[Rfam]
RNA sequence: UAAGCAGGCUGCAAUUACAGUGCUUCAUUCUGUGGGAGUACUGCCAUUUUCCUGCUGAGAGGAACCCUGUUAAUGCUUUGGUUUCACCUGUACAGUGGUGAAACUAUUAGUUCUUAACAUGGACAAGU
Numbered sequence: 001u002a003a004g005c006a007g008g009c010u011g012c013a014a015u016u017a018c019a020g021u022g023c024u025u026c027a028u029u030c031u032g033u034g035g036g037a038g039u040a041c042u043g044c045c046a047u048u049u050u051c052c053u054g055c056u057g058a059g060a061g062g063a064a065c066c067c068u069g070u071u072a073a074u075g076c077u078u079u080g081g082u083u084u085c086a087c088c089u090g091u092a093c094a095g096u097g098g099u100g101a102a103a104c105u106a107u108u109a110g111u112u113c114u115u116a117a118c119a120u121g122g123a124c125a126a127g128u
Base pairs, nucleotide, nucleotide: 003056004055005054006053007052008051018043019042020041021040022039023038024037025036026035065122066121068119069118070117071116072115073114075112079106080105081104082103083102084101085100086099087098088097

A member of the RNA family "Small nucleolar RNA SNORA69" from Semnornis frantzii, 128 nucleotides long. The organism belongs to Semnornis, within Eukaryota. Rfam links the family to the GO terms nucleolus and RNA processing. Pairs were carried over by alignment from the consensus structure, which was predicted with PFOLD. The family's RNA type in Rfam is H/ACA-box small nucleolar RNA.